Rfam assigns this 67-nucleotide RNA sequence from Callorhinus ursinus to the family "MAT2A 3'UTR stem loop F". The literature on the family includes a 2011 paper in Genome Res by Parker et al., "New families of human regulatory RNA structures identified by comparative analysis of vertebrate genomes". The family's consensus secondary structure is taken from published work. It is annotated as a cis-regulatory element. It scores 56 bits against the family's covariance model. Lineage of the source: Eukaryota > Opisthokonta > Craniata > Otariidae > Callorhinus.
[Rfam]
RNA sequence: CAUGGAGCAAGCCUGACGUAGUGGGUGUGGUACAGAGAAGCUAGCUUGUUUACAUGCUUGUCCUACG
Numbered sequence: 001c002a003u004g005g006a007g008c009a010a011g012c013c014u015g016a017c018g019u020a021g022u023g024g025g026u027g028u029g030g031u032a033c034a035g036a037g038a039a040g041c042u043a044g045c046u047u048g049u050u051u052a053c054a055u056g057c058u059u060g061u062c063c064u065a066c067g
Stems, first nucleotide, its partner, number of pairs: 001067001003065003007061001009059004015050003020046003024042003027033002